[Rfam]
A member of the RNA family "Eukaryotic large subunit ribosomal RNA" from Fasciola hepatica, 547 nucleotides of a longer RNA. Clan: LSU clan. A search with the family's covariance model found it, with a score of 1659 bits.
RNA sequence: CCCUCCGAAGUUUCCCUCAGGAUAGCUGGCAUUCUGUGAUAUAAACAGUUUUGUACGGUGAAGCGAAUAAUUAGAGGCAUUCGGGGAGAAACUUUCUCAACCUACUCUCAAACUUUAAAUGGGUGAGAAGCCUAACUCGCUCAAACGGAGCUGGGCGUUGAAUGUGAGCGCCAAGUGGGCCAUUUUUGAUAAGCAGAACUGGCGCUACGGGAUGAACCAAAUGUUUGGGUAAGGAGCUUGUCAUGGCGCUCAUGAGAUACCACGAAAGGUGUUGUUUGGUUCACAAAGCAGGACGGUGGCCGUGGAGGUUGGAAUCCGCCAAGGAGAGUGUAACAACUCACCUGCCGAAUCAACCAGCCCUGAAAAUGGAUGGCGCUGGAGCGUCGGACCUAUACCGGACCGUCAUUGCAAGCUGAGUCGGUAAUGUGUGGUGUGAGGGCAAGCCACAUGACUCAGGCGCGGAAUUGUUGUGACGAGUAGGAGGGUCGCCGUAGUGAGCCGGAGGCUUAGGGCCUGAGCCCGAGCGGAGCCGCAAAGGGUGCAGAUG
Numbered sequence: 001c002c003c004u005c006c007g008a009a010g011u012u013u014c015c016c017u018c019a020g021g022a023u024a025g026c027u028g029g030c031a032u033u034c035u036g037u038g039a040u041a042u043a044a045a046c047a048g049u050u051u052u053g054u055a056c057g058g059u060g061a062a063g064c065g066a067a068u069a070a071u072u073a074g075a076g077g078c079a080u081u082c083g084g085g086g087a088g089a090a091a092c093u094u095u096c097u098c099a100a101c102c103u104a105c106u107c108u109c110a111a112a113c114u115u116u117a118a119a120u121g122g123g124u125g126a127g128a129a130g131c132c133u134a135a136c137u138c139g140c141u142c143a144a145a146c147g148g149a150g151c152u153g154g155g156c157g158u159u160g161a162a163u164g165u166g167a168g169c170g171c172c173a174a175g176u177g178g179g180c181c182a183u184u185u186u187u188g189a190u191a192a193g194c195a196g197a198a199c200u201g202g203c204g205c206u207a208c209g210g211g212a213u214g215a216a217c218c219a220a221a222u223g224u225u226u227g228g229g230u231a232a233g234g235a236g237c238u239u240g241u242c243a244u245g246g247c248g249c250u251c252a253u254g255a256g257a258u259a260c261c262a263c264g265a266a267a268g269g270u271g272u273u274g275u276u277u278g279g280u281u282c283a284c285a286a287a288g289c290a291g292g293a294c295g296g297u298g299g300c301c302g303u304g305g306a307g308g309u310u311g312g313a314a315u316c317c318g319c320c321a322a323g324g325a326g327a328g329u330g331u332a333a334c335a336a337c338u339c340a341c342c343u344g345c346c347g348a349a350u351c352a353a354c355c356a357g358c359c360c361u362g363a364a365a366a367u368g369g370a371u372g373g374c375g376c377u378g379g380a381g382c383g384u385c386g387g388a389c390c391u392a393u394a395c396c397g398g399a400c401c402g403u404c405a406u407u408g409c410a411a412g413c414u415g416a417g418u419c420g421g422u423a424a425u426g427u428g429u430g431g432u433g434u435g436a437g438g439g440c441a442a443g444c445c446a447c448a449u450g451a452c453u454c455a456g457g458c459g460c461g462g463a464a465u466u467g468u469u470g471u472g473a474c475g476a477g478u479a480g481g482a483g484g485g486u487c488g489c490c491g492u493a494g495u496g497a498g499c500c501g502g503a504g505g506c507u508u509a510g511g512g513c514c515u516g517a518g519c520c521c522g523a524g525c526g527g528a529g530c531c532g533c534a535a536a537g538g539g540u541g542c543a544g545a546u547g
Base pairs, nucleotide, nucleotide: 001485002484003483004482005481006480011024013022014021015020027173028172029171030170032168033167049128050127051126052125053124054123056121061116062114063113068110070108075103076102077101080100081099083097084096085095087093130156131155132154133153134152136150137149138148179203180202181201182200184198185197186196187195188194209218210217223400224399225398226397227396233390234389242387244386247383248382249381267361268360269359271358272357273356274355276353277352278351279350280349288345289344290343291342292341294318295317296316300312301311319323324339328337329336401475402474403473404472405471406470408468409467410466411465487541489538490537492535494533495532496531498530499529505525506524511520512519513518